[Rfam]
RNA sequence: AGGAGAGGAACGUCUGCUAAGUGCGCAUAAGUCAUCACAUCCUGUGAAAGUAAGUCCUGUAUGCAACGCAUAAGUCACCGCGUCCUGCGGA
Dot-bracket structure: ..........(.(.(((.......(((((..............................)))))...))).).)...((((.....)))).
Numbered sequence: 001a002g003g004a005g006a007g008g009a010a011c012g013u014c015u016g017c018u019a020a021g022u023g024c025g026c027a028u029a030a031g032u033c034a035u036c037a038c039a040u041c042c043u044g045u046g047a048a049a050g051u052a053a054g055u056c057c058u059g060u061a062u063g064c065a066a067c068g069c070a071u072a073a074g075u076c077a078c079c080g081c082g083u084c085c086u087g088c089g090g091a
Stems, first nucleotide, its partner, number of pairs: 011074001013072001015070003025064005078090004

Shown here is a 91-nucleotide RNA sequence from Sporolactobacillus inulinus, a member of the family "Bacillaceae-1 RNA". NCBI's taxonomy places the organism under Bacteria, Caryophanales, Sporolactobacillaceae, Sporolactobacillus, Sporolactobacillus inulinus. A search with the family's covariance model found it, with a score of 37 bits. The family has 95 seed sequences and 5,721 matches in Rfam 15.1.